Source information
This 126-nucleotide RNA from Oribacterium sp. KHPX15 belongs to the Rfam family "azaaromatic riboswitch aptamer (yjdF RNA)". Taxonomically the source falls in Oribacterium (Bacteria, Bacillati, Bacillota, Lachnospirales).
[Rfam]
RNA sequence: AAAGACAAAGAUAAAAACGCAACGUGCAUUAGAUGCACCAGAGCCGGUAGGUAGCCCGGCCGUCUCAUUCUCAGAAUGAGGUAAGUAACCUGCCCCUCCGGGUUGUCCAUUCUUUGUCCAUAAGAA
Numbered sequence: 001a002a003a004g005a006c007a008a009a010g011a012u013a014a015a016a017a018c019g020c021a022a023c024g025u026g027c028a029u030u031a032g033a034u035g036c037a038c039c040a041g042a043g044c045c046g047g048u049a050g051g052u053a054g055c056c057c058g059g060c061c062g063u064c065u066c067a068u069u070c071u072c073a074g075a076a077u078g079a080g081g082u083a084a085g086u087a088a089c090c091u092g093c094c095c096c097u098c099c100g101g102g103u104u105g106u107c108c109a110u111u112c113u114u115u116g117u118c119c120a121u122a123a124g125a126a
Base pairs, nucleotide, nucleotide: 004118005117006116007115008114009113010112011111043060044059045058046057047056062082063081064080065079066078067077068076069075070074092103093102094101095100